[Rfam]
RNA sequence: CUCUUAUCCAGAGUGGUCGAGGGACUGGCCCGAUGACGCCCGGCAACCGGCUUUUCAGAGCAGUGGUGCCAAAUCCAGCAGAACUUUUGGGUUCUGAGAGAUGAGAG
Dot-bracket structure: ((((((((....(.(((...(((.[[[[)))......))))((((.((.(((......)))...))))))...(]]]]((((((......))))))..)))))))))
Shown here is a 107-nucleotide RNA sequence from Acetonema longum, a member of the family "SAM riboswitch aptamer (S box leader)". Pairs were carried over by alignment from the consensus structure, which is taken from published work.